RNA sequence: AGAUGAGUGAAACACCCCGUUCGCAGGAGACUGCGGACGACGCCGUACCGUCGCUUCCCCAGCGCCGGCCCGGCCGUGCCUUCGCGCACAGCACUGGAGCCCUCGGCUCCGGACAUCCUCACCGAUCGGA
Numbered sequence: 001a002g003a004u005g006a007g008u009g010a011a012a013c014a015c016c017c018c019g020u021u022c023g024c025a026g027g028a029g030a031c032u033g034c035g036g037a038c039g040a041c042g043c044c045g046u047a048c049c050g051u052c053g054c055u056u057c058c059c060c061a062g063c064g065c066c067g068g069c070c071c072g073g074c075c076g077u078g079c080c081u082u083c084g085c086g087c088a089c090a091g092c093a094c095u096g097g098a099g100c101c102c103u104c105g106g107c108u109c110c111g112g113a114c115a116u117c118c119u120c121a122c123c124g125a126u127c128g129g130a
Stems, first nucleotide, its partner, number of pairs: 004121004009117002018039009042074004049067002052064003076089004094112008122129002

The record is a 130-nucleotide RNA from Streptomyces luteoverticillatus, which matches "Streptomyces RNA 5676" in Rfam. NCBI's taxonomy places the organism under Bacteria, Actinomycetota, Actinomycetes, Kitasatosporales, Streptomyces. Rfam describes the family as follows. Identified by deep sequencing of transcriptome at the end of exponential growth phase. Appears longer on northern blot than sequencing transcript. This indicates processing step. The family's RNA type in Rfam is small RNA. A search with the family's covariance model found it, with a score of 106 bits.